[Rfam]
Rfam assigns this 221-nucleotide RNA sequence from Fervidicola ferrireducens to the family "HNH endonuclease-associated RNA and ORF (HEARO) RNA". The family's RNA type in Rfam is non-coding RNA gene. The base pairs follow the family's consensus structure, which is taken from published work. Lineage of the source: Bacteria > Bacillati > Bacillota > Thermosediminibacteraceae > Fervidicola. The match comes from Rfam's covariance-model search (160 bits). On this family, see Weinberg et al., Nature 2009: "Exceptional structured noncoding RNAs revealed by bacterial metagenome analysis".
RNA sequence: GUCAACUACCUACCACCUAUAGAGGUGGAGGCUUGCAAAAGCCUUAGUUGACUACCCUCAGCCAGGGUCGAAAGACCAUCGGGCUACGUUAGGCAUGUCAUGACACCAUGGGAUGAUGCCCAAGUCCCAUGCUCUGUCGCAUGUACCUAAACAGUCCUGAGGGGUAGGGACAGUGGUACAUGCAUAACAAGCCUGCCUAACAUUGGGGAUGGGCAAAAUAA
Numbered sequence: 001g002u003c004a005a006c007u008a009c010c011u012a013c014c015a016c017c018u019a020u021a022g023a024g025g026u027g028g029a030g031g032c033u034u035g036c037a038a039a040a041g042c043c044u045u046a047g048u049u050g051a052c053u054a055c056c057c058u059c060a061g062c063c064a065g066g067g068u069c070g071a072a073a074g075a076c077c078a079u080c081g082g083g084c085u086a087c088g089u090u091a092g093g094c095a096u097g098u099c100a101u102g103a104c105a106c107c108a109u110g111g112g113a114u115g116a117u118g119c120c121c122a123a124g125u126c127c128c129a130u131g132c133u134c135u136g137u138c139g140c141a142u143g144u145a146c147c148u149a150a151a152c153a154g155u156c157c158u159g160a161g162g163g164g165u166a167g168g169g170a171c172a173g174u175g176g177u178a179c180a181u182g183c184a185u186a187a188c189a190a191g192c193c194u195g196c197c198u199a200a201c202a203u204u205g206g207g208g209a210u211g212g213g214c215a216a217a218a219u220a221a
Stems, first nucleotide, its partner, number of pairs: 001052008010031002013028002016025002032041003055207003060085004088201008097192002103137002107131008117215006139183009151174002154171005160165001
Dot-bracket structure: ((((((((.((.((.((......)).)).))(((....)))...))))))))..(((..((((..................))))..((((((((.((....((..((((((((..[[[[[[.))))))))....)).(((((((((...((.(((((.(....).))))).))))))))))).......)).))))))))...)))..]]]]]]......